[Rfam]
RNA: SAM riboswitch aptamer (S box leader)
RNA sequence: CACUUAUCAAGAAAGGCAGAGGGAAAUGGCCCUGCGAAGCCUUAGCAACCAGCCACCGUUUACGCGGUGAGCAAGGUGCUACAUCCAUCCCGGUAAUACCGGGAAAGAUAAGCC
Numbered sequence: 001c002a003c004u005u006a007u008c009a010a011g012a013a014a015g016g017c018a019g020a021g022g023g024a025a026a027u028g029g030c031c032c033u034g035c036g037a038a039g040c041c042u043u044a045g046c047a048a049c050c051a052g053c054c055a056c057c058g059u060u061u062a063c064g065c066g067g068u069g070a071g072c073a074a075g076g077u078g079c080u081a082c083a084u085c086c087a088u089c090c091c092g093g094u095a096a097u098a099c100c101g102g103g104a105a106a107g108a109u110a111a112g113c114c
Base pairs, nucleotide, nucleotide: 003112004111005110006109007108008107013043014042015041016040017039021032022031023030026088027087028086029085044080045079046078047077049076050075052072053071084106089103090102091101092100093099094098
Dot-bracket structure: ..((((((....(((((...(((..[[[[)))......)))))((((.((.((.................))..))))))...(]]]]((((((...))))))..)))))))..